[Rfam]
RNA sequence: GCCCCUCUUCUCUAAUCCUUGCUAUCUGGGCACUAGUGCUGUCUCAAUGCAAUGCACCUGGGAAGGAUUCAGAGAGGGUGAGC
Numbered sequence: 001g002c003c004c005c006u007c008u009u010c011u012c013u014a015a016u017c018c019u020u021g022c023u024a025u026c027u028g029g030g031c032a033c034u035a036g037u038g039c040u041g042u043c044u045c046a047a048u049g050c051a052a053u054g055c056a057c058c059u060g061g062g063a064a065g066g067a068u069u070c071a072g073a074g075a076g077g078g079u080g081a082g083c
Stems, first nucleotide, its partner, number of pairs: 014069007025062006037051003
Rfam assigns this 83-nucleotide RNA from Rousettus aegyptiacus to the family "mir-500 microRNA precursor family". Gene Ontology terms of the family: miRNA-mediated post-transcriptional gene silencing and RISC complex.